The family of this 267-nucleotide RNA from Paenibacillus sp. J2TS4 is "Bacterial large signal recognition particle RNA". It scores 207 bits against the family's covariance model.
[Rfam]
RNA sequence: CCGUGCUAGACGGGGAGGUAGCGGUGCCCUAUAACCUGCAAUCCGCUGCAGCAGGGUUGAAUUCCUGCUAGAGGUCUUGUCGGUGUAAGGUCUGACGGAUACACGUAGUGUUGACGGUCGGGUCCUUCGCAAUGAAAGCUUGUGAACUCGGUCAGGUUCGGAAGAAAGCAGCCGUAAGCAAGAUGUUUCAUGUGUUGAAGGGUUACCUAACCUGAGCUAACGAUAUUCGUUCCGCUUGGAUCGCAACGAUCGAUAGCAGGUGCACGG
Numbered sequence: 001c002c003g004u005g006c007u008a009g010a011c012g013g014g015g016a017g018g019u020a021g022c023g024g025u026g027c028c029c030u031a032u033a034a035c036c037u038g039c040a041a042u043c044c045g046c047u048g049c050a051g052c053a054g055g056g057u058u059g060a061a062u063u064c065c066u067g068c069u070a071g072a073g074g075u076c077u078u079g080u081c082g083g084u085g086u087a088a089g090g091u092c093u094g095a096c097g098g099a100u101a102c103a104c105g106u107a108g109u110g111u112u113g114a115c116g117g118u119c120g121g122g123u124c125c126u127u128c129g130c131a132a133u134g135a136a137a138g139c140u141u142g143u144g145a146a147c148u149c150g151g152u153c154a155g156g157u158u159c160g161g162a163a164g165a166a167a168g169c170a171g172c173c174g175u176a177a178g179c180a181a182g183a184u185g186u187u188u189c190a191u192g193u194g195u196u197g198a199a200g201g202g203u204u205a206c207c208u209a210a211c212c213u214g215a216g217c218u219a220a221c222g223a224u225a226u227u228c229g230u231u232c233c234g235c236u237u238g239g240a241u242c243g244c245a246a247c248g249a250u251c252g253a254u255a256g257c258a259g260g261u262g263c264a265c266g267g
Base pairs, nucleotide, nucleotide: 001267002266003265004264005263006262009058010057011056012030013029014028015027017025019023035055036054037053038052039051064260065259066258067257068256069255070254073251074250075249076248081243082242083241084240086238087237088236089235094230097228098227099226100225101224105221106220107218108217109216116212117211118210120208121207122206123205124201125200126199127198128197129196130192131191133190134189135188136187137186139182140181141180142179143178149174150173151172152171157166158165159164
The base pairs follow the family's consensus structure, which is taken from published work. Taxonomically the source falls in Paenibacillus (Bacteria, Bacillati, Bacilli, Paenibacillaceae).